The record is a 61-nucleotide RNA from Pristionchus pacificus, which matches "mir-8364 microRNA precursor family" in Rfam. The organism belongs to Pristionchus, within Eukaryota. Gene Ontology terms of the family: miRNA-mediated post-transcriptional gene silencing and RISC complex. The base pairs follow the family's consensus structure, which was predicted with RNAalifold.
RNA sequence: UCUCCGUUCCGCAUGCUCUCUCACCGGUCAGAGCGACGAGAGAGUGUGCGGAAUGAAGAGA
Numbered sequence: 001u002c003u004c005c006g007u008u009c010c011g012c013a014u015g016c017u018c019u020c021u022c023a024c025c026g027g028u029c030a031g032a033g034c035g036a037c038g039a040g041a042g043a044g045u046g047u048g049c050g051g052a053a054u055g056a057a058g059a060g061a
Stems, first nucleotide, its partner, number of pairs: 001059003005055003010050001012048006019041004